[Rfam]
RNA sequence: UUCUCGCUCAAAGAAUCGCAUUCGAAGCACACAAACAGAAACAUCUUUAUUGAUGUUUCAAUUCAUAUCUAUGCUUUGGGAGAAAGUCCCCGGACACCCUUCUUUUUAAAAGUUAGGAUUGCGGAAACGCGCCGCCAUAGAAGCACUUGCGGUUUCUCUUCUACCAAUUCUUUACCUUCAAUUUCAUACAUCCUUCUGCCGUUUGUACUAUCACUCGGACGCUUCUUGACGAUCGAAUUCAAAUCUUGGGAGACCACAUGGAUGAAGAUAUGAGUCCGAGCUUCCUUGCGAUGUUUUCAACCGACUUGAAGACGAUGAGUAGUGGGAGGUUUAAGGUAUGUUCUUGAUUGAGGUGGGAGUGCUAAUGGUAGACGAGGCUUUUUCGUCGAGAUCGAUAGUUAUGCGAUUGCCUUCCUUGGCCCUUCAAGCUGGGGAGGUAACUCGAUGGGGCUUAUUCUUGAUGCGAGG
Number, nucleotide and partner (000 for none) at each position: 001u000002u468003c467004u466005c465006g464007c463008u461009c460010a459011a458012a000013g000014a408015a407016u406017c405018g404019c403020a000021u000022u080023c078024g077025a076026a075027g074028c073029a000030c000031a000032c000033a000034a000035a000036c000037a000038g059039a058040a057041a056042c055043a054044u053045c000046u000047u000048u000049a000050u000051u000052g000053a044054u043055g042056u041057u040058u039059c038060a000061a000062u000063u000064c000065a000066u000067a000068u000069c000070u000071a000072u000073g028074c027075u026076u025077u024078g023079g000080g022081a000082g000083a000084a453085a452086g451087u000088c450089c449090c448091c447092g000093g000094a000095c000096a000097c000098c000099c000100u000101u000102c000103u000104u000105u000106u000107u000108a000109a000110a000111a000112g000113u000114u000115a000116g000117g000118a000119u000120u131121g130122c129123g128124g000125a000126a000127a000128c123129g122130c121131g120132c152133c151134g150135c149136c000137a147138u000139a000140g000141a000142a000143g000144c000145a000146c000147u137148u000149g135150c134151g133152g132153u000154u000155u000156c000157u000158c000159u000160u000161c000162u000163a000164c000165c000166a000167a000168u000169u000170c000171u000172u000173u000174a000175c000176c000177u000178u000179c000180a000181a000182u000183u000184u000185c000186a000187u000188a000189c000190a000191u000192c000193c000194u000195u000196c000197u000198g000199c000200c000201g000202u000203u000204u000205g000206u000207a000208c000209u000210a000211u000212c000213a000214c000215u000216c000217g000218g000219a000220c000221g000222c000223u000224u000225c000226u000227u000228g000229a000230c000231g000232a000233u000234c000235g000236a000237a000238u000239u000240c000241a000242a000243a000244u000245c000246u000247u000248g000249g000250g000251a000252g000253a000254c000255c000256a000257c000258a000259u000260g000261g000262a000263u000264g000265a000266a000267g000268a000269u000270a000271u000272g000273a000274g000275u000276c000277c000278g000279a000280g000281c000282u000283u000284c000285c000286u000287u000288g000289c000290g000291a000292u000293g000294u000295u000296u000297u000298c000299a000300a000301c000302c000303g000304a000305c000306u000307u000308g000309a000310a000311g000312a000313c000314g000315a000316u000317g000318a000319g000320u000321a000322g000323u000324g000325g000326g000327a000328g000329g000330u000331u000332u000333a000334a000335g000336g000337u000338a000339u000340g000341u000342u000343c353344u352345u351346g000347a000348u000349u000350g000351a345352g344353g343354u000355g000356g000357g000358a000359g000360u000361g000362c000363u000364a000365a000366u000367g000368g000369u000370a000371g000372a000373c000374g000375a000376g000377g000378c000379u000380u000381u000382u000383u000384c000385g000386u000387c000388g000389a000390g000391a000392u000393c000394g000395a000396u000397a000398g000399u000400u000401a000402u000403g019404c018405g017406a016407u015408u014409g000410c437411c436412u435413u434414c433415c432416u000417u000418g000419g000420c000421c000422c000423u000424u000425c000426a000427a000428g000429c000430u000431g000432g415433g414434g413435a412436g411437g410438u000439a000440a000441c000442u000443c000444g000445a000446u000447g091448g090449g089450g088451c086452u085453u084454a000455u000456u000457c000458u011459u010460g009461a008462u000463g007464c006465g005466a004467g003468g002